[Rfam]
RNA sequence: UUGCACAGUGAACACUCUUGGCUUUGACUCUGUGCUAGAGCAAUGUCUGUUCUUUUCCUCUGCAUUGAAAGGACUGUUCAUCCUUUUAAAUGUAUUCAUAAAGUCAGUACUUUA
Dot-bracket structure: ..((((((.(..((.(....)...))..))))))).((((((.....)))))).....(.(((((((((((((.......))))))).))))....)).)..............
RNA: Small nucleolar RNA SNORA22
Organism: Pipistrellus kuhlii